[Rfam]
RNA sequence: GCUGGUGCAGCUGAUGACUUCACUUUUUUCCCCAUCAGAUCGACCCUGUUGAUCUCAAGCUAAUAAUAGCCAGUUUUGUCUGAUGCAUUGGC
Dot-bracket structure: (((((((((..........................................................................)))))))))